SAM riboswitch aptamer (S box leader): a 105-nucleotide RNA sequence from Tetzosporium hominis. Gene Ontology term of the family: regulation of gene expression. The family has 457 seed sequences and 9,625 matches in Rfam 15.1.

[Rfam]
RNA sequence: CUCUUAUAAAGAGAGGUGGAGGGAAGUGCCCUAUGAAGCCCGGCAACCGUCACGAAAGUGAAAUGGUGCCAAGUCACGCAAAGCUAGCGCUUUGAGAGAUGAGAG
Numbered sequence: 001c002u003c004u005u006a007u008a009a010a011g012a013g014a015g016g017u018g019g020a021g022g023g024a025a026g027u028g029c030c031c032u033a034u035g036a037a038g039c040c041c042g043g044c045a046a047c048c049g050u051c052a053c054g055a056a057a058g059u060g061a062a063a064u065g066g067u068g069c070c071a072a073g074u075c076a077c078g079c080a081a082a083g084c085u086a087g088c089g090c091u092u093u094g095a096g097a098g099a100u101g102a103g104a105g
Stems, first nucleotide, its partner, number of pairs: 001105007013041001015040003021031003026077003042070004047066002050061003074097001079094006
Dot-bracket structure: (((((((.....(.(((...(((..[[[)))......))))((((.((.(((......)))...))))))...(]]].((((((....))))))..).)))))))